[Rfam]
The family of this 149-nucleotide sequence from Gossypium stocksii is "MIR8643 microRNA precursor family". Rfam links the family to the GO terms miRNA-mediated post-transcriptional gene silencing and RISC complex. The source organism's lineage runs through Eukaryota, Viridiplantae, Spermatophyta, Malvaceae and Gossypium.
RNA sequence: AUUUCUUUUAACAUAUCAGGAAACCAAAUUGGCAGUGAAGAAAGAAGCAGGAAGUUGAAAACCAUCAUUGCCUAUAACCAAAACCUAUAAAUCCAUGCCAUGCUUAUUUCUUCACUGCUAAUUCGACUUCUUGAUAUGUUAAAAGAAAU
Numbered sequence: 001a002u003u004u005c006u007u008u009u010a011a012c013a014u015a016u017c018a019g020g021a022a023a024c025c026a027a028a029u030u031g032g033c034a035g036u037g038a039a040g041a042a043a044g045a046a047g048c049a050g051g052a053a054g055u056u057g058a059a060a061a062c063c064a065u066c067a068u069u070g071c072c073u074a075u076a077a078c079c080a081a082a083a084c085c086u087a088u089a090a091a092u093c094c095a096u097g098c099c100a101u102g103c104u105u106a107u108u109u110c111u112u113c114a115c116u117g118c119u120a121a122u123u124c125g126a127c128u129u130c131u132u133g134a135u136a137u138g139u140u141a142a143a144a145g146a147a148a149u
Base pairs, nucleotide, nucleotide: 004146005145006144007143008142009141010140011139012138013137014136015135016134017133018132020130021129022128025125027123028122029121030120031119033117034116035115036114037113038112039111040110041109042108043107045105046104048102049101051099056095057094